[Rfam]
RNA sequence: GUGCGUGGACGACCGCGCACCGUCAUGUCAUCGGGGACGGCCCCA
Number, nucleotide and partner (000 for none) at each position: 001g020002u019003g018004c017005g016006u015007g014008g013009a000010c000011g000012a000013c008014c007015g006016c005017g004018c003019a002020c001021c000022g000023u000024c000025a000026u000027g000028u000029c000030a000031u000032c000033g044034g043035g042036g041037a000038c000039g000040g000041c036042c035043c034044c033045a000